[Rfam]
RNA sequence: CUCCCCGCUGCCCGGCCUCGCGCCAACUCCCCUCGCCAGCAGGUGGGAUCACCUGAUCAGGUGACUGAGUCGCAUAUGCGGGUCCGAAGCCGGUACGUUCACGGCACAUCCCGGGAAUCCGCCCGGGAAAAAAAUCGGCCCCCGGCGGGACUGGCAUCCCAACACCGAGGGCCUGAUCAACGGAAGACACAAACUUCCGG
Numbered sequence: 001c002u003c004c005c006c007g008c009u010g011c012c013c014g015g016c017c018u019c020g021c022g023c024c025a026a027c028u029c030c031c032c033u034c035g036c037c038a039g040c041a042g043g044u045g046g047g048a049u050c051a052c053c054u055g056a057u058c059a060g061g062u063g064a065c066u067g068a069g070u071c072g073c074a075u076a077u078g079c080g081g082g083u084c085c086g087a088a089g090c091c092g093g094u095a096c097g098u099u100c101a102c103g104g105c106a107c108a109u110c111c112c113g114g115g116a117a118u119c120c121g122c123c124c125g126g127g128a129a130a131a132a133a134a135u136c137g138g139c140c141c142c143c144g145g146c147g148g149g150a151c152u153g154g155c156a157u158c159c160c161a162a163c164a165c166c167g168a169g170g171g172c173c174u175g176a177u178c179a180a181c182g183g184a185a186g187a188c189a190c191a192a193a194c195u196u197c198c199g200g
Base pairs, nucleotide, nucleotide: 049064050063051062052061053060054059069105070104071103072102137173138172139171140170141169143167144166145165147160148159149158150157182198183197184196185195186194
A member of the RNA family "Streptomyces sRNA 4677" from Streptomyces kasugaensis, 200 nucleotides long.
Taxonomically the source falls in Streptomyces (Bacteria, Bacillati, Actinomycetota, Actinomycetes).
The literature on the family includes a 2014 paper in PLoS One by Hindra et al., "Complex intra-operonic dynamics mediated by a small RNA in Streptomyces coelicolor".
About the family: Located in the intergenic region between anti-sigma factor SCO4677 gene and a putative regulatory protein gene SCO4676. scr4677 expression requires the SCO4677 activity and scr4677 sRNA itself seem to affect the levels of the SCO4676-associated transcripts.
Pairs were carried over by alignment from the consensus structure.
Rfam 15.1 lists 563 matches to the family in 285 species.